RNA sequence: GGAGCCAUAGGAAGGGAUGCCAAUACAGCCUUUGGAAAAGAAACCUGCCACGGGAGUCUUGGAGAUUGGCGACUAUGCUAAUGAGUUA
Numbered sequence: 001g002g003a004g005c006c007a008u009a010g011g012a013a014g015g016g017a018u019g020c021c022a023a024u025a026c027a028g029c030c031u032u033u034g035g036a037a038a039a040g041a042a043a044c045c046u047g048c049c050a051c052g053g054g055a056g057u058c059u060u061g062g063a064g065a066u067u068g069g070c071g072a073c074u075a076u077g078c079u080a081a082u083g084a085g086u087u088a
Stems, first nucleotide, its partner, number of pairs: 002087002006083003010079002013076001015074002018071007029062002038060004044054004